[Rfam]
ALIL pseudoknot: a 116-nucleotide sequence from Paralysiella testudinis. For this family Rfam cites "Apical loop-internal loop RNA pseudoknots: a new type of stimulator of -1 translational frameshifting in bacteria" (Mazauric et al., J Biol Chem, 2008). The family's consensus secondary structure is taken from published work. The organism belongs to Paralysiella, within Bacteria.
RNA sequence: CGCUUUUUCGCCCGGGCGGAACUCGACCGCAAACCCAAGUAAUGGUCGACUUUAUCAAUCGCCACAAAACCGCUUACGGGGUCGGGUCGCUUGGCCGUUAUCGGCCGAUUGCCCCG
Numbered sequence: 001c002g003c004u005u006u007u008u009c010g011c012c013c014g015g016g017c018g019g020a021a022c023u024c025g026a027c028c029g030c031a032a033a034c035c036c037a038a039g040u041a042a043u044g045g046u047c048g049a050c051u052u053u054a055u056c057a058a059u060c061g062c063c064a065c066a067a068a069a070c071c072g073c074u075u076a077c078g079g080g081g082u083c084g085g086g087u088c089g090c091u092u093g094g095c096c097g098u099u100a101u102c103g104g105c106c107g108a109u110u111g112c113c114c115c116g
Stems, first nucleotide, its partner, number of pairs: 016030004077116005088111002091108007